[Rfam]
RNA sequence: UGAUUUCUAUAUUUGAACCAAUGAAUAUUUACAUGACAAAAAUAUGGUGGUGGUACAACUCUCGAAAAAAAUCGUGAGCUGAGCAUUGCUAUAGUCAAACUAUAUAAGGCCUGUC
Numbered sequence: 001u002g003a004u005u006u007c008u009a010u011a012u013u014u015g016a017a018c019c020a021a022u023g024a025a026u027a028u029u030u031a032c033a034u035g036a037c038a039a040a041a042a043u044a045u046g047g048u049g050g051u052g053g054u055a056c057a058a059c060u061c062u063c064g065a066a067a068a069a070a071a072u073c074g075u076g077a078g079c080u081g082a083g084c085a086u087u088g089c090u091a092u093a094g095u096c097a098a099a100c101u102a103u104a105u106a107a108g109g110c111c112u113g114u115c
Base pairs, nucleotide, nucleotide: 042095043093044092045091046090047089049087050086051085052084056081057080059078060077061076064073065072
RNA: Bacteroidete tryptophan peptide leader RNA
Organism: Flavobacteriaceae bacterium EG-1